[Rfam]
RNA sequence: AAAAGGAGCAAUAGCUUCCCUCUUGUUUUUAUAAAGAGGGCGCUAUUGCUCCUUUUUU
Numbered sequence: 001a002a003a004a005g006g007a008g009c010a011a012u013a014g015c016u017u018c019c020c021u022c023u024u025g026u027u028u029u030u031a032u033a034a035a036g037a038g039g040g041c042g043c044u045a046u047u048g049c050u051c052c053u054u055u056u057u058u
Base pairs, nucleotide, nucleotide: 002055003054004053005052006051007050008049009048010047011046012045013044014043015042020038021037022036023035024034
Shown here is a 58-nucleotide RNA sequence, a member of the family "Plastid-psbA-3 3UTR RNA". Pairs were carried over by alignment from the consensus structure, which was predicted with LocARNA. Rfam's curators write: Plastid psbA-3 is a non-coding RNA (ncRNA) present in plastids. It was identified in inverted repeat sequences in the 3 prime untranslate region (3UTR) of photosystem II quinone-binding protein (psbA). The sequence is in the family's curated seed alignment. For this family Rfam cites "Retrograde signaling in plants: A critical review focusing on the GUN pathway and beyond" (Richter et al., Plant Commun, 2023).